[Rfam]
The family of this 78-nucleotide RNA sequence from Anguilla anguilla is "mir-103/107 microRNA precursor family". A search with the family's covariance model found it, with a score of 90 bits. The source organism's lineage runs through Eukaryota, Deuterostomia, Actinopterygii, Anguilliformes and Anguilla. On this family, see Mourelatos et al., Genes Dev 2002: "miRNPs: a novel class of ribonucleoproteins containing numerous microRNAs".
RNA sequence: CUUUGCUUUCAGCCUCUUUACGGUGCUGCCUUGUAGAAUCCAUAUCAAGCAGCAUUGUACAGGGCUAUGACAGCAGGG
Numbered sequence: 001c002u003u004u005g006c007u008u009u010c011a012g013c014c015u016c017u018u019u020a021c022g023g024u025g026c027u028g029c030c031u032u033g034u035a036g037a038a039u040c041c042a043u044a045u046c047a048a049g050c051a052g053c054a055u056u057g058u059a060c061a062g063g064g065c066u067a068u069g070a071c072a073g074c075a076g077g078g
Stems, first nucleotide, its partner, number of pairs: 014064004019059010030049004